[Rfam]
RNA: SAM riboswitch aptamer (S box leader)
Organism: Clostridium collagenovorans
RNA sequence: UUCUUAUCCAGAGUGGUGGAGGGACUGGCCCUGUGAAACCCAGCAACCAGUAUUAUUUUAUAAUACAUGGUGCUAAUUCCUACAGCUUAUAAAGCUGAGAGAUGAGAG
Numbered sequence: 001u002u003c004u005u006a007u008c009c010a011g012a013g014u015g016g017u018g019g020a021g022g023g024a025c026u027g028g029c030c031c032u033g034u035g036a037a038a039c040c041c042a043g044c045a046a047c048c049a050g051u052a053u054u055a056u057u058u059u060a061u062a063a064u065a066c067a068u069g070g071u072g073c074u075a076a077u078u079c080c081u082a083c084a085g086c087u088u089a090u091a092a093a094g095c096u097g098a099g100a101g102a103u104g105a106g107a108g
Stems, first nucleotide, its partner, number of pairs: 001108008013041001015040003021031003027080002042074004047070002050066004078100001083097006